[Rfam]
RNA: nhaA-I RNA
RNA sequence: GGGUUCGGGGGCAACGGUGCUCCCGGAGGUCGAUGCGACGGGUGGUCGGGCCGCCAUUC
Numbered sequence: 001g002g003g004u005u006c007g008g009g010g011g012c013a014a015c016g017g018u019g020c021u022c023c024c025g026g027a028g029g030u031c032g033a034u035g036c037g038a039c040g041g042g043u044g045g046u047c048g049g050g051c052c053g054c055c056a057u058u059c
Base pairs, nucleotide, nucleotide: 005026006025007024008023009022010021011020012019040059041058042057043056044055045054046053